Rfam assigns this 87-nucleotide sequence from Brochothrix campestris to the family "RNA anti-toxin A". The literature on the family includes a 2010 paper in Nucleic Acids Res by Fozo et al., "Abundance of type I toxin-antitoxin systems in bacteria: searches for new candidates and discovery of novel families".

RNA sequence: UAAUAAAGGUAUACAAAAAGACACCAGCUAUAACUGGUGUCCGUGUAGAACCGUUUAAGACGGUGGCUAUAUUUUUAUAAUUUACUU
Numbered sequence: 001u002a003a004u005a006a007a008g009g010u011a012u013a014c015a016a017a018a019a020g021a022c023a024c025c026a027g028c029u030a031u032a033a034c035u036g037g038u039g040u041c042c043g044u045g046u047a048g049a050a051c052c053g054u055u056u057a058a059g060a061c062g063g064u065g066g067c068u069a070u071a072u073u074u075u076u077a078u079a080a081u082u083u084a085c086u087u
Stems, first nucleotide, its partner, number of pairs: 024037004050064006